[Rfam]
RNA: Small nucleolar RNA SNORD103/SNORD85
Organism: Sarcophilus harrisii
RNA sequence: UCUGGCGAUGAUGACACACUUGCCCUCACUGAGAAUAUAGUUUGGUGAUGAAAACCUUGCUAUAUGUACUCAAAAACUGAGCCAGA
Numbered sequence: 001u002c003u004g005g006c007g008a009u010g011a012u013g014a015c016a017c018a019c020u021u022g023c024c025c026u027c028a029c030u031g032a033g034a035a036u037a038u039a040g041u042u043u044g045g046u047g048a049u050g051a052a053a054a055c056c057u058u059g060c061u062a063u064a065u066g067u068a069c070u071c072a073a074a075a076a077c078u079g080a081g082c083c084a085g086a
Stems, first nucleotide, its partner, number of pairs: 001086006